[Rfam]
RNA sequence: CCUGUUAUUCCAUUAGCAGUAGUCUACUGUCAACAAAGCGGCUGGUAACGGCUGUGAGGAAGCGUGACAGGACAAGGGUAGCCCCACCCGAAAAGGUUCAAGCUGAAACUGCGAGGUGAAAGCGAUAAGCUGCAAGCAACAAUGCGGUUGGGGAG
Numbered sequence: 001c002c003u004g005u006u007a008u009u010c011c012a013u014u015a016g017c018a019g020u021a022g023u024c025u026a027c028u029g030u031c032a033a034c035a036a037a038g039c040g041g042c043u044g045g046u047a048a049c050g051g052c053u054g055u056g057a058g059g060a061a062g063c064g065u066g067a068c069a070g071g072a073c074a075a076g077g078g079u080a081g082c083c084c085c086a087c088c089c090g091a092a093a094a095g096g097u098u099c100a101a102g103c104u105g106a107a108a109c110u111g112c113g114a115g116g117u118g119a120a121a122g123c124g125a126u127a128a129g130c131u132g133c134a135a136g137c138a139a140c141a142a143u144g145c146g147g148u149u150g151g152g153g154a155g
Stems, first nucleotide, its partner, number of pairs: 002019006028069005034059001038055007086097003098125002102123001109116002129148006
Group II catalytic intron D1-D4-7: a 155-nucleotide RNA. The pairing is the family consensus, mapped onto this sequence. The sequence is in the family's curated seed alignment. On this family, see Bonen and Vogel, Trends Genet 2001: "The ins and outs of group II introns". Rfam describes the family as follows. Group II introns are found in rRNA, tRNA and mRNA of organelles in fungi, plants and protists, and also in mRNA in bacteria.